[Rfam]
RNA sequence: ACCGGUCUGCUGUUGAGUAUCCUAUCGGGCUUUUCGCAGUCGACCAAUUGACAAUAGUAGGAGUGCUAUAGUGGCCCGUAUCGCUGGCAUUAACAUUCCUGAG
Numbered sequence: 001a002c003c004g005g006u007c008u009g010c011u012g013u014u015g016a017g018u019a020u021c022c023u024a025u026c027g028g029g030c031u032u033u034u035c036g037c038a039g040u041c042g043a044c045c046a047a048u049u050g051a052c053a054a055u056a057g058u059a060g061g062a063g064u065g066c067u068a069u070a071g072u073g074g075c076c077c078g079u080a081u082c083g084c085u086g087g088c089a090u091u092a093a094c095a096u097u098c099c100u101g102a103g
Stems, first nucleotide, its partner, number of pairs: 004045004009040005021087002026078004034102002